The record is a 73-nucleotide RNA sequence from Alligator mississippiensis, which matches "Mammalian CPEB3 ribozyme" in Rfam. Taxonomically the source falls in Alligator (Eukaryota, Metazoa, Craniata, Gnathostomata). It scores 46 bits against the family's covariance model. Rfam 15.1 lists 5,706 matches to the family in 197 species.
[Rfam]
RNA sequence: UUAACUUAACAGCCAUAGCAGAAGUGGUCACAUCAUGGCCGUAUCAGAUUCUAACAAAUCUGCAAACUCUGCU
Numbered sequence: 001u002u003a004a005c006u007u008a009a010c011a012g013c014c015a016u017a018g019c020a021g022a023a024g025u026g027g028u029c030a031c032a033u034c035a036u037g038g039c040c041g042u043a044u045c046a047g048a049u050u051c052u053a054a055c056a057a058a059u060c061u062g063c064a065a066a067c068u069c070u071g072c073u
Stems, first nucleotide, its partner, number of pairs: 010041001012039003017073006024036003045062006